[Rfam]
RNA sequence: ACCAGUUACAGCUCUUUUAGAAUUUGUCUAGUAGGCUUUCCGGUAUUUGCUGGAAAGCCCCU
Numbered sequence: 001a002c003c004a005g006u007u008a009c010a011g012c013u014c015u016u017u018u019a020g021a022a023u024u025u026g027u028c029u030a031g032u033a034g035g036c037u038u039u040c041c042g043g044u045a046u047u048u049g050c051u052g053g054a055a056a057g058c059c060c061c062u
Stems, first nucleotide, its partner, number of pairs: 034059011
RNA: U7 small nuclear RNA